[Rfam]
RNA sequence: UAUUGACAAAGGCAAACCCAUCGAAAGAUGGUGGCGCAAAACUAUAGGAGCUACCGCGAUAUUCACUCGCUACGCUAGCCAGUUACCGAU
Numbered sequence: 001u002a003u004u005g006a007c008a009a010a011g012g013c014a015a016a017c018c019c020a021u022c023g024a025a026a027g028a029u030g031g032u033g034g035c036g037c038a039a040a041a042c043u044a045u046a047g048g049a050g051c052u053a054c055c056g057c058g059a060u061a062u063u064c065a066c067u068c069g070c071u072a073c074g075c076u077a078g079c080c081a082g083u084u085a086c087c088g089a090u
Stems, first nucleotide, its partner, number of pairs: 012037002018031005040084004047080002049076003056070004

This 90-nucleotide RNA sequence from Paenibacillus anaericanus belongs to the Rfam family "c-di-GMP-I riboswitch aptamer". The base pairs follow the family's consensus structure, which is taken from published work. NCBI's taxonomy places the organism under Bacteria, Bacillota, Bacilli, Caryophanales, Paenibacillus. The match comes from Rfam's covariance-model search (72 bits).